[Rfam]
RNA sequence: AUUUCUUGCUCGGACCCCUCUCCUCCUCCCUCGGGGUCCAUGGCAAACGCGGCGUCGUCUCUCCUCCUCCCUGACGACGCCGCACUUU
Numbered sequence: 001a002u003u004u005c006u007u008g009c010u011c012g013g014a015c016c017c018c019u020c021u022c023c024u025c026c027u028c029c030c031u032c033g034g035g036g037u038c039c040a041u042g043g044c045a046a047a048c049g050c051g052g053c054g055u056c057g058u059c060u061c062u063c064c065u066c067c068u069c070c071c072u073g074a075c076g077a078c079g080c081c082g083c084a085c086u087u088u
Base pairs, nucleotide, nucleotide: 007042008041012039013038014037015036016035017034018033050082051081052080053079054078055077056076057075058074059073
Dot-bracket structure: ......((...(((((((..............))))))).)).......((((((((((.............))))))))))......